RNA sequence: GGAGGUGCUGUAAACAUCCUUGACUGGAAGCUGGGGUUUGUGCAGAGGGCUUUCAGUCGGAUGUUUGCAGCAUCUUA
Numbered sequence: 001g002g003a004g005g006u007g008c009u010g011u012a013a014a015c016a017u018c019c020u021u022g023a024c025u026g027g028a029a030g031c032u033g034g035g036g037u038u039u040g041u042g043c044a045g046a047g048g049g050c051u052u053u054c055a056g057u058c059g060g061a062u063g064u065u066u067g068c069a070g071c072a073u074c075u076u077a
Stems, first nucleotide, its partner, number of pairs: 002076005008070012023057010
Rfam assigns this 77-nucleotide sequence from Labrus bergylta to the family "mir-30 microRNA precursor family". Rfam links the family to the GO terms RISC complex and gene silencing by miRNA. The family's consensus secondary structure was predicted with PFOLD. The organism belongs to Labrus, within Eukaryota.